[Rfam]
RNA sequence: GGCCCAAAUUUGAAGUACAGUAGAUUAGAAGAGUUAACUGAUACUACUGAUCUACUCUACUUCAAAUUUGGUCCC
Numbered sequence: 001g002g003c004c005c006a007a008a009u010u011u012g013a014a015g016u017a018c019a020g021u022a023g024a025u026u027a028g029a030a031g032a033g034u035u036a037a038c039u040g041a042u043a044c045u046a047c048u049g050a051u052c053u054a055c056u057c058u059a060c061u062u063c064a065a066a067u068u069u070g071g072u073c074c075c
Stems, first nucleotide, its partner, number of pairs: 001074002004071006011064007019056005025050004030045001033042003
The family of this 75-nucleotide RNA sequence from Haemonchus placei is "mir-5928 microRNA precursor family". The source organism's lineage runs through Eukaryota, Opisthokonta, Chromadorea, Strongyloidea and Haemonchus. Pairs were carried over by alignment from the consensus structure, which was predicted with RNAalifold. The match comes from Rfam's covariance-model search (65 bits). Its family is annotated with RISC complex and miRNA-mediated post-transcriptional gene silencing in the Gene Ontology.